[Rfam]
RNA sequence: AUUUGAUGCUGCGGGUAUCUAGUGCACAACUUGUUAAACCUUUCCCAAUAUUCAUACAAGGACUCACCAGGAUAUUGUUUAAUGCCGCAGAUCUCUUUCCUCAAACU
Numbered sequence: 001a002u003u004u005g006a007u008g009c010u011g012c013g014g015g016u017a018u019c020u021a022g023u024g025c026a027c028a029a030c031u032u033g034u035u036a037a038a039c040c041u042u043u044c045c046c047a048a049u050a051u052u053c054a055u056a057c058a059a060g061g062a063c064u065c066a067c068c069a070g071g072a073u074a075u076u077g078u079u080u081a082a083u084g085c086c087g088c089a090g091a092u093c094u095c096u097u098u099c100c101u102c103a104a105a106c107u
Base pairs, nucleotide, nucleotide: 001107003105004104005102006101058073
RNA: Plant small nucleolar RNA R71
Organism: Coffea arabica